[Rfam]
RNA sequence: GAUCGCAGUGACGACUCAGUAAAAUUCAAGCUCAACAGACCGGAUUGCAGAGUCCUUUCCUCUUUUUGAAAGAGUGAGAGGGCUUUGCGUGUCGAAUACCCCGCUGAACUGAGCGAUC
Numbered sequence: 001g002a003u004c005g006c007a008g009u010g011a012c013g014a015c016u017c018a019g020u021a022a023a024a025u026u027c028a029a030g031c032u033c034a035a036c037a038g039a040c041c042g043g044a045u046u047g048c049a050g051a052g053u054c055c056u057u058u059c060c061u062c063u064u065u066u067u068g069a070a071a072g073a074g075u076g077a078g079a080g081g082g083c084u085u086u087g088c089g090u091g092u093c094g095a096a097u098a099c100c101c102c103g104c105u106g107a108a109c110u111g112a113g114c115g116a117u118c
Stems, first nucleotide, its partner, number of pairs: 001118006